This 67-nucleotide RNA sequence from Pipistrellus kuhlii belongs to the Rfam family "mir-9256 microRNA precursor family". The family has 8 seed sequences and 31,772 matches in Rfam 15.1.

[Rfam]
RNA sequence: ACAUACACCAAGUGGCCAGAUUAUUAUGUUCUCUGAACGCAUAAUAAUCUGGCCACUCAGUGUGUAU
Numbered sequence: 001a002c003a004u005a006c007a008c009c010a011a012g013u014g015g016c017c018a019g020a021u022u023a024u025u026a027u028g029u030u031c032u033c034u035g036a037a038c039g040c041a042u043a044a045u046a047a048u049c050u051g052g053c054c055a056c057u058c059a060g061u062g063u064g065u066a067u
Stems, first nucleotide, its partner, number of pairs: 004064005011057007019049010